[Rfam]
RNA: RT-5 RNA
RNA sequence: UUGCGCCUGCGGCGGAUUAAGCAGCGGCCUUGUUAUGACUUUGCAGGCAGCCGGCUUCUGUUCAAAUCCCGUAUAAUUAAGCAUAGCUUAAUUUUCAAAGCUUUUU
Numbered sequence: 001u002u003g004c005g006c007c008u009g010c011g012g013c014g015g016a017u018u019a020a021g022c023a024g025c026g027g028c029c030u031u032g033u034u035a036u037g038a039c040u041u042u043g044c045a046g047g048c049a050g051c052c053g054g055c056u057u058c059u060g061u062u063c064a065a066a067u068c069c070c071g072u073a074u075a076a077u078u079a080a081g082c083a084u085a086g087c088u089u090a091a092u093u094u095u096c097a098a099a100g101c102u103u104u105u106u
Base pairs, nucleotide, nucleotide: 005048006047007046008045009044010043011042014069015068017066018065021061022060023059024058026056027055028054037052039050040049076092077091078090079089080088081087